RNA sequence: GUCUUUCUCCCCAGACUUGCUGGUGUAUAAUACAGAGAAGCUACAAGCUCUCGGGGAGAAAGGC
Numbered sequence: 001g002u003c004u005u006u007c008u009c010c011c012c013a014g015a016c017u018u019g020c021u022g023g024u025g026u027a028u029a030a031u032a033c034a035g036a037g038a039a040g041c042u043a044c045a046a047g048c049u050c051u052c053g054g055g056g057a058g059a060a061a062g063g064c
Stems, first nucleotide, its partner, number of pairs: 001064004008056003013051003018045002023041002025033002
RNA: MAT2A 3'UTR stem loop A
Organism: Scyliorhinus torazame